[Rfam]
RNA sequence: GAAUAUUUGCUUUUUAGUAUUUCUCUAGCGGGCAUCUAAUAAUUAGAUGCCCAC
Numbered sequence: 001g002a003a004u005a006u007u008u009g010c011u012u013u014u015u016a017g018u019a020u021u022u023c024u025c026u027a028g029c030g031g032g033c034a035u036c037u038a039a040u041a042a043u044u045a046g047a048u049g050c051c052c053a054c
Base pairs, nucleotide, nucleotide: 031051032050033049034048035047036046037045038044
Rfam assigns this 54-nucleotide RNA from Clupea harengus to the family "U7 small nuclear RNA". Lineage of the source: Eukaryota > Chordata > Neopterygii > Osteoglossocephalai > Clupea. It scores 38 bits against the family's covariance model.